Rfam assigns this 89-nucleotide RNA sequence from Acidimicrobium ferrooxidans to the family "tRNA". A search with the family's covariance model found it, with a score of 54 bits. The base pairs follow the family's consensus structure, which is taken from published work. Taxonomically the source falls in Acidimicrobium ferrooxidans (Bacteria, Acidimicrobiia, Acidimicrobiales, Acidimicrobiaceae).
RNA sequence: GGAGAGGUGCCAGAGCGGCCGAAUGGGACUCACUGCUAAUGAGUUGACCCGCGAAAGUGGGUCCGAGGGUUCAAAUCCCUCCCUCUCCG
Numbered sequence: 001g002g003a004g005a006g007g008u009g010c011c012a013g014a015g016c017g018g019c020c021g022a023a024u025g026g027g028a029c030u031c032a033c034u035g036c037u038a039a040u041g042a043g044u045u046g047a048c049c050c051g052c053g054a055a056a057g058u059g060g061g062u063c064c065g066a067g068g069g070u071u072c073a074a075a076u077c078c079c080u081c082c083c084u085c086u087c088c089g
Base pairs, nucleotide, nucleotide: 001088002087003086004085005084006083007082010026011025012024028044029043030042031041032040065081066080067079068078069077